Bag-1 internal ribosome entry site (IRES): a 370-nucleotide RNA sequence from Castor canadensis. For this family Rfam cites "The p36 isoform of BAG-1 is translated by internal ribosome entry following heat shock" (Coldwell et al., Oncogene, 2001). The family's consensus secondary structure was predicted with PFOLD. Rfam describes the family as follows. This family represents the bag-1 internal ribosome entry site (IRES). When expressed the BAG-1 protein is known to enhance the anti-apoptotic properties of Bcl-2. Although bag-1 translation usually occurs via a cap-dependent mechanism it has been found to contain a IRES in its 5' UTR. Translation via the IRES has been found to be common following heat shock when cap-dependent scanning is compromised. It scores 326 bits against the family's covariance model.
[Rfam]
RNA sequence: UGGGCGGUCAACAAGCGCGGGCCUGGCGGAGCGCGGUGGCGCGCGAAGGCCGCGAGGGGACCGGGAGCGGCUGGGUCCCCGGCGGCGCGCACCUCGGCUCAGCCGGGAGCUGCGCCAGUCGGAGCGCCCAGCCGAGCGCGGCCCGCCUCCCUCUCAGCGUUCAUCUCUGCGGAGUACAGCCAGCGGAUAUGACCGAUCCACCAGAGGCGCCGCCACCGGCGCUUGCAAGCCGCGGGUGAAGAAGAAAGUCCGUCCCCGCUCGACCCGGAGCGAGAAGGUGACCCAGCGCAAGGAGGCGACUCGGCACAAGGAGGUGACCGAGGCCGAGGAAGUGACCCGGCGCAAGGAGGUGACCAAAGCCGAGGAGGUG
Dot-bracket structure: ...................(((..(((..........((.(((((.....))).......(((((.((......)).)))))......)).))...)))..))).......................................(((((((...............(.(.((............)).).)...............((((((((....))))))))................................(((((......))))).........................................................................)))))))..................